[Rfam]
RNA sequence: UGGGCUGGCCGAAAGGCCCAGGUCCACCGGAGGCGGGGGCAUUCCCC
Numbered sequence: 001u002g003g004g005c006u007g008g009c010c011g012a013a014a015g016g017c018c019c020a021g022g023u024c025c026a027c028c029g030g031a032g033g034c035g036g037g038g039g040c041a042u043u044c045c046c047c
Stems, first nucleotide, its partner, number of pairs: 001026006007018004

Shown here is a 47-nucleotide sequence, a member of the family "DUF3800-XI RNA". Actinobacteria, Firmicutes, Proteobacteria, Spirochaetes (1 example). The sequence is in the family's curated seed alignment.